[Rfam]
RNA sequence: GACGGUUCACCGCCGAGUCACCCGAGGCCGGGUGAGCCGGGGACCCAACCGCCUCGCCGCCAGCGAGGAAUGGGGUGAAUCCGCGCCAACCAUGCGGUAGGGCAGUCUUGCGCCCGAACCCGACAGCUAACCCGGUAGGCGGACGAGACGAAAGAA
Numbered sequence: 001g002a003c004g005g006u007u008c009a010c011c012g013c014c015g016a017g018u019c020a021c022c023c024g025a026g027g028c029c030g031g032g033u034g035a036g037c038c039g040g041g042g043a044c045c046c047a048a049c050c051g052c053c054u055c056g057c058c059g060c061c062a063g064c065g066a067g068g069a070a071u072g073g074g075g076u077g078a079a080u081c082c083g084c085g086c087c088a089a090c091c092a093u094g095c096g097g098u099a100g101g102g103c104a105g106u107c108u109u110g111c112g113c114c115c116g117a118a119c120c121c122g123a124c125a126g127c128u129a130a131c132c133c134g135g136u137a138g139g140c141g142g143a144c145g146a147g148a149c150g151a152a153a154g155a156a
Base pairs, nucleotide, nucleotide: 011141012140013139014138018035019034020033021032022031023030036136037135038134039133040132041131046072047071073121074120075119081097082096083095084094100115101114102113103112
The family of this 156-nucleotide RNA sequence from Stackebrandtia nassauensis is "c-di-AMP riboswitch aptamer (ydaO/yuaA leader)". The organism belongs to Stackebrandtia nassauensis, within Bacteria.